[Rfam]
RNA sequence: UUAACAGCCUUGGAGACUGAAGCCCUCUAUUUAUCUACAGAACAGGUACAGCCUGGGCAGCAGCAGUGCUAGCUUCCACUACACUUCCCCCGCCAACGUGCCUCAACCCUGACCUGGAGGAACCACCUCUAGAGGUGAGAGGGGAAUUCAGUCUCCAUGUCCAUUCAAUCCUUGGCCUCU
Numbered sequence: 001u002u003a004a005c006a007g008c009c010u011u012g013g014a015g016a017c018u019g020a021a022g023c024c025c026u027c028u029a030u031u032u033a034u035c036u037a038c039a040g041a042a043c044a045g046g047u048a049c050a051g052c053c054u055g056g057g058c059a060g061c062a063g064c065a066g067u068g069c070u071a072g073c074u075u076c077c078a079c080u081a082c083a084c085u086u087c088c089c090c091c092g093c094c095a096a097c098g099u100g101c102c103u104c105a106a107c108c109c110u111g112a113c114c115u116g117g118a119g120g121a122a123c124c125a126c127c128u129c130u131a132g133a134g135g136u137g138a139g140a141g142g143g144g145a146a147u148u149c150a151g152u153c154u155c156c157a158u159g160u161c162c163a164u165u166c167a168a169u170c171c172u173u174g175g176c177c178u179c180u
Stems, first nucleotide, its partner, number of pairs: 002167001004165001007161001011157011024144005030139006038111003048103001051101002054098002063087001065085002114132007